RNA: terC RNA
Organism: Devosia sp. Root413D1
RNA sequence: GGGCGGUACCGGGCCCCUCUGACGGCAGCACUUCUACGCUCCGUGAUGUCGGAACUGCUCC
Numbered sequence: 001g002g003g004c005g006g007u008a009c010c011g012g013g014c015c016c017c018u019c020u021g022a023c024g025g026c027a028g029c030a031c032u033u034c035u036a037c038g039c040u041c042c043g044u045g046a047u048g049u050c051g052g053a054a055c056u057g058c059u060c061c
Stems, first nucleotide, its partner, number of pairs: 006055002009052004022044004027040003